[Rfam]
RNA sequence: CAGGUGUAAUGACACUUAAGCCUGAAUACCUAAGUCCAUCGGAUAGGGUAUCCAGGCCGCAACGUAGUGUUGCCAGGGUGCAGAAAGAAAUGACGGCAUCUCCCGAUUCUGGAAAGGUGUUUCUCUUGCCACAAU
Numbered sequence: 001c002a003g004g005u006g007u008a009a010u011g012a013c014a015c016u017u018a019a020g021c022c023u024g025a026a027u028a029c030c031u032a033a034g035u036c037c038a039u040c041g042g043a044u045a046g047g048g049u050a051u052c053c054a055g056g057c058c059g060c061a062a063c064g065u066a067g068u069g070u071u072g073c074c075a076g077g078g079u080g081c082a083g084a085a086a087g088a089a090a091u092g093a094c095g096g097c098a099u100c101u102c103c104c105g106a107u108u109c110u111g112g113a114a115a116g117g118u119g120u121u122u123c124u125c126u127u128g129c130c131a132c133a134a135u
Stems, first nucleotide, its partner, number of pairs: 003129001006126001011121005017116001020057005026051005034044004059073005076101006083094001086091001102112002
RNA: Molybdenum/Tungsten riboswitch aptamer (Moco RNA motif)
Organism: Izhakiella capsodis